[Rfam]
RNA sequence: UAGGGCGACCAGUUGUCCCGGUUGGCCUGCGACUGAGGUGUUUUGCCAACUAGGACAGUCCCAGGCAAGCCGGAGAGUUGGUCACCCUAAAUCUGG
Number, nucleotide and partner (000 for none) at each position: 001u089002a088003g087004g086005g085006c000007g083008a082009c081010c080011a079012g078013u077014u076015g000016u000017c000018c000019c072020g071021g070022u069023u068024g000025g066026c065027c064028u063029g062030c000031g060032a059033c058034u057035g056036a000037g000038g000039u000040g051041u000042u049043u000044u000045g000046c000047c000048a000049a042050c000051u040052a000053g000054g000055a000056c035057a034058g033059u032060c031061c000062c029063a028064g027065g026066c025067a000068a023069g022070c021071c020072g019073g000074a000075g000076a014077g013078u012079u011080g010081g009082u008083c007084a000085c005086c004087c003088u002089a001090a000091a000092u000093c000094u000095g000096g000